[Rfam]
RNA sequence: ACGGUAAACCGUUCUAUCGCUGCUUUGCAAAAAGGAGAGGAAAGUCCGGGCAAUACAGAGUAGCAUACUUCCUAACGGGAAGAAGGUCGAAAGAUCUUAGUAGUAGAGCAGAAAAUAACCGCCUUCGGGUAAGGGUGAAAAGGUGAGGUAAGAGCUCACCAGUGCUGGUGGCGACAUCGGUAGCUGUGUACCUUAUGUAUUGCAAGAUCAAGUAUACCGGCAGUUUUAGGCUUACUCGGCCGAUGUCGGGGGGUAGAUUGCUUGAGGCAUUUGGCAACAAAUGUUCUAGAUAAAUGAUAGAAGUUCUUUUCGAAGAAUACAGAACCCGGCUUAUAGGUUUACCAUUACU
Number, nucleotide and partner (000 for none) at each position: 001a345002c000003g343004g342005u341006a340007a339008a338009c337010c336011g334012u302013u301014c300015u299016a298017u297018c296019g000020c037021u036022g000023c034024u033025u032026u031027g000028c000029a000030a000031a026032a025033a024034g023035g000036a021037g020038a000039g000040g000041a000042a332043a331044g330045u000046c329047c328048g327049g326050g325051c202052a201053a200054u199055a000056c000057a000058g237059a236060g235061u234062a000063g198064c197065a196066u195067a194068c082069u081070u080071c079072c078073u000074a000075a000076c000077g000078g072079g071080a070081a069082g068083a098084a000085g096086g095087u094088c093089g000090a000091a000092a000093g088094a087095u086096c085097u000098u083099a193100g192101u000102a000103g191104u190105a189106g000107a187108g000109c000110a000111g000112a000113a000114a000115a000116u000117a000118a000119c134120c133121g130122c129123c128124u000125u000126c000127g000128g123129g122130u121131a000132a000133g120134g119135g000136u000137g000138a000139a000140a000141a000142g160143g159144u158145g157146a156147g155148g000149u000150a000151a000152g000153a000154g000155c147156u146157c145158a144159c143160c142161a000162g184163u182164g181165c180166u179167g178168g177169u176170g175171g000172c000173g000174a000175c170176a169177u168178c167179g166180g165181u164182a163183g000184c162185u000186g000187u107188g000189u105190a104191c103192c100193u099194u067195a066196u065197g064198u063199a054200u053201u052202g051203c000204a000205a000206g259207a258208u257209c256210a000211a000212g000213u000214a000215u000216a000217c249218c248219g247220g246221c245222a000223g000224u000225u000226u000227u000228a000229g241230g240231c239232u238233u000234a061235c060236u059237c058238g232239g231240c230241c229242g000243a000244u000245g221246u220247c219248g218249g217250g000251g000252g000253g000254u000255a000256g209257a208258u207259u206260g000261c000262u000263u000264g000265a000266g285267g284268c283269a282270u281271u280272u279273g278274g000275c000276a000277a000278c273279a272280a271281a270282u269283g268284u267285u266286c000287u000288a000289g000290a000291u000292a000293a000294a000295u000296g018297a017298u016299a015300g014301a013302a012303g000304u000305u000306c000307u000308u000309u000310u000311c000312g000313a000314a000315g000316a000317a000318u000319a000320c000321a000322g000323a000324a000325c050326c049327c048328g047329g046330c044331u043332u042333a000334u011335a000336g010337g009338u008339u007340u006341a005342c004343c003344a000345u001346u000347a000348c000349u000
RNA: Bacterial RNase P class A